[Rfam]
RNA: Y RNA
Organism: Odocoileus virginianus
Nucleotides: 093
Stems, first nucleotide, its partner, number of pairs: 001089008010081002015076001016072006027057002031053001
Number, partner (000 for none) and nucleotide at each position: 001089g002088g003087c004086u005085g006084g007083u008082c009000c010081g011080a012000u013000g014000g015076u016072a017071g018070u019069g020068g021067g022000u023000u024000a025000c026000c027057a028056c029000u030000u031053a032000u033000u034000a035000a036000c037000a038000u039000u040000a041000g042000g043000g044000u045000c046000a047000c048000u049000a050000a051000a052000g053031u054000u055000g056028g057027u058000a059000u060000a061000c062000a063000a064000c065000u066000c067021c068020u069019c070018a071017c072016u073000g074000u075000c076015a077000a078000a079000u080011u081010u082008g083007a084006c085005u086004g087003g088002c089001u090000u091000u092000u093000a